RNA sequence: GUUGAGCUCGGUAGCGCGGGCUUGUAACUCAAGUGGGGACAUUAAGAUGGUUGAACACUGAUCCGAUUUCACCUGGUAGGUUCUGGUGUGCACACUAUGUUGACUCGCCCGUUCCAAGUUGGGAGUUGGUCUCAUGGUCCUGGCUUAAGCCUGGGGCUGUGUGCGGCCACUGAAGUGGAGGGUACUGCGUUAGGCUGGUUUCACAGAGCAGCGAGCACCUCCCUCUCUUGACAGUGGAAGGAUAACGAGUUGACGUGCCCCGGUUCCAACUCAGCCUGGUGAGCCGAGUCAGUCGAACAACCACCUUU
Numbered sequence: 001g002u003u004g005a006g007c008u009c010g011g012u013a014g015c016g017c018g019g020g021c022u023u024g025u026a027a028c029u030c031a032a033g034u035g036g037g038g039a040c041a042u043u044a045a046g047a048u049g050g051u052u053g054a055a056c057a058c059u060g061a062u063c064c065g066a067u068u069u070c071a072c073c074u075g076g077u078a079g080g081u082u083c084u085g086g087u088g089u090g091c092a093c094a095c096u097a098u099g100u101u102g103a104c105u106c107g108c109c110c111g112u113u114c115c116a117a118g119u120u121g122g123g124a125g126u127u128g129g130u131c132u133c134a135u136g137g138u139c140c141u142g143g144c145u146u147a148a149g150c151c152u153g154g155g156g157c158u159g160u161g162u163g164c165g166g167c168c169a170c171u172g173a174a175g176u177g178g179a180g181g182g183u184a185c186u187g188c189g190u191u192a193g194g195c196u197g198g199u200u201u202c203a204c205a206g207a208g209c210a211g212c213g214a215g216c217a218c219c220u221c222c223c224u225c226u227c228u229u230g231a232c233a234g235u236g237g238a239a240g241g242a243u244a245a246c247g248a249g250u251u252g253a254c255g256u257g258c259c260c261c262g263g264u265u266c267c268a269a270c271u272c273a274g275c276c277u278g279g280u281g282a283g284c285c286g287a288g289u290c291a292g293u294c295g296a297a298c299a300a301c302c303a304c305c306u307u308u
Base pairs, nucleotide, nucleotide: 001040002039003038004023005022006021007020008019009018010017028037029036030035044307045306046305048303049302050301051300052299053298056295058292059291060290062287063286065284069282070281071280072279073278075276076275077274079267080266083263084262085261086260088259090258091257092256100253101252102251103250104249105248106247107246109241110240112239113238114237115236116235118232119231120230121229122228123227124226125225127169128168129167130166131165133163134162135159136158137157138156139155140154141153142151143150144149170175177222178221179220180219181218186215188213189212190211195206196205197204

The record is a 308-nucleotide RNA from Papaver nudicaule, which matches "Plant signal recognition particle RNA" in Rfam. The family's RNA type in Rfam is non-coding RNA gene. A search with the family's covariance model found it, with a score of 226 bits. Pairs were carried over by alignment from the consensus structure, which is taken from published work.